Shown here is a 313-nucleotide RNA sequence from Naegleria lovaniensis, a member of the family "Group I catalytic intron".
Group I catalytic introns are large self-splicing ribozymes. They catalyse their own excision from mRNA, tRNA and rRNA precursors in a wide range of organisms. The core secondary structure consists of 9 paired regions (P1-P9). These fold to essentially two domains - the P4-P6 domain (formed from the stacking of P5, P4, P6 and P6a helices) and the P3-P9 domain (formed from the P8, P3, P7 and P9 helices). The secondary structure mark-up for this family represents only this conserved core. Group I catalytic introns often have long ORFs inserted in loop regions. The window size for this search is chosen to minimise search time and catch the small examples. A larger window size will find more matches.
Rfam links the family to the GO term Group I intron splicing.
The source organism's lineage runs through Eukaryota, Discoba, Heterolobosea, Tetramitia and Naegleria.
RNA sequence: GGGUUGGUACAACAAAAAUUGUGCCAAGUCACGUAAAGGUUGGUUACCUUUAUAAUGUGGCGACACUGUCAAAUUGCCGGAAAGUCCUGCUAAGUCUAUAGUACCGCUCUAGUACCGAAAGGUCUGACUAGUUGCACUACAGGGAAACUUGUAGGUAUGGUAAGAAUCUAUAGAUAGGGAUAAUCGGCAGCCAAGUCCUAAACCAUAUUUAAUAAUAAUAAUAUGGCAUGGAUGCAGUUCAGAGACUAAAUGUCAGUGGGUUAUUCAUAUAUGAAUAGCUUAAGAUAUAGUCCAGCCCACCCGAGAGGGUGCU
Numbered sequence: 001g002g003g004u005u006g007g008u009a010c011a012a013c014a015a016a017a018a019u020u021g022u023g024c025c026a027a028g029u030c031a032c033g034u035a036a037a038g039g040u041u042g043g044u045u046a047c048c049u050u051u052a053u054a055a056u057g058u059g060g061c062g063a064c065a066c067u068g069u070c071a072a073a074u075u076g077c078c079g080g081a082a083a084g085u086c087c088u089g090c091u092a093a094g095u096c097u098a099u100a101g102u103a104c105c106g107c108u109c110u111a112g113u114a115c116c117g118a119a120a121g122g123u124c125u126g127a128c129u130a131g132u133u134g135c136a137c138u139a140c141a142g143g144g145a146a147a148c149u150u151g152u153a154g155g156u157a158u159g160g161u162a163a164g165a166a167u168c169u170a171u172a173g174a175u176a177g178g179g180a181u182a183a184u185c186g187g188c189a190g191c192c193a194a195g196u197c198c199u200a201a202a203c204c205a206u207a208u209u210u211a212a213u214a215a216u217a218a219u220a221a222u223a224u225g226g227c228a229u230g231g232a233u234g235c236a237g238u239u240c241a242g243a244g245a246c247u248a249a250a251u252g253u254c255a256g257u258g259g260g261u262u263a264u265u266c267a268u269a270u271a272u273g274a275a276u277a278g279c280u281u282a283a284g285a286u287a288u289a290g291u292c293c294a295g296c297c298c299a300c301c302c303g304a305g306a307g308g309g310u311g312c313u
Base pairs, nucleotide, nucleotide: 064258065257066256067255068254070252071251075189076188077187078186079185080184085180086179087178088177190238191237195233196232197231198230203226204225205224206223207222208221209220242293244292245291246290247289248288260279261278262277263276264275265274266273267272298311299310300309301308302307